[Rfam]
RNA sequence: AGCGGGUGCAGAGCUUAGCUGAUUGGUGAACGUGCACUGUUUGCUUUUUUUGUUCACAGUGGCUAAGUUCUUCACCUGAA
Dot-bracket structure: ..........((((((((((.....(((((((..................)))))))...))))))))))..........

This 80-nucleotide RNA from Cyprinus carpio belongs to the Rfam family "mir-27 microRNA precursor family". The literature on the family includes a 2005 paper in Genes Dev by Chen et al., "The developmental miRNA profiles of zebrafish as determined by small RNA cloning". Its family is annotated with miRNA-mediated post-transcriptional gene silencing and RISC complex in the Gene Ontology. Taxonomically the source falls in Cyprinus (Eukaryota, Eumetazoa, Craniata, Clupeocephala). The match comes from Rfam's covariance-model search (76 bits).